[Rfam]
RNA sequence: GUCGCCACGACCAUGUGGUGUACAGAGUCCUAAAUUUUGGGGCUCCCAAACUGUUAAGGAAGAAAUCGAUG
Numbered sequence: 001g002u003c004g005c006c007a008c009g010a011c012c013a014u015g016u017g018g019u020g021u022a023c024a025g026a027g028u029c030c031u032a033a034a035u036u037u038u039g040g041g042g043c044u045c046c047c048a049a050a051c052u053g054u055u056a057a058g059g060a061a062g063a064a065a066u067c068g069a070u071g
Stems, first nucleotide, its partner, number of pairs: 002022001003020007026044006
The family of this 71-nucleotide RNA sequence from gamma proteobacterium WG36 is "osmY RNA".
By type it is a small RNA.
Rfam's curators put it in the seed alignment.
The source organism's lineage runs through Bacteria, Pseudomonadati, Pseudomonadota and Gammaproteobacteria.